A member of the RNA family "Selenocysteine transfer RNA" from Cavenderia fasciculata, 86 nucleotides long. The base pairs follow the family's consensus structure, which is taken from published work. NCBI's taxonomy places the organism under Eukaryota, Amoebozoa, Evosea, Dictyostelia, Cavenderia. The family is grouped with related families in Rfam's "tRNA clan".

RNA sequence: GCUGAUUUGAUCCGUAAUGGGUUACGGCGGUGGCUUCAAACCACUGGGGCUCUCGCGGGCCAGGAGCUCGAUUCUCCCUGAUUAGC
Numbered sequence: 001g002c003u004g005a006u007u008u009g010a011u012c013c014g015u016a017a018u019g020g021g022u023u024a025c026g027g028c029g030g031u032g033g034c035u036u037c038a039a040a041c042c043a044c045u046g047g048g049g050c051u052c053u054c055g056c057g058g059g060c061c062a063g064g065a066g067c068u069c070g071a072u073u074c075u076c077c078c079u080g081a082u083u084a085g086c
Stems, first nucleotide, its partner, number of pairs: 001086007009078001012027006028046006048061005063077004
It scores 61 bits against the family's covariance model.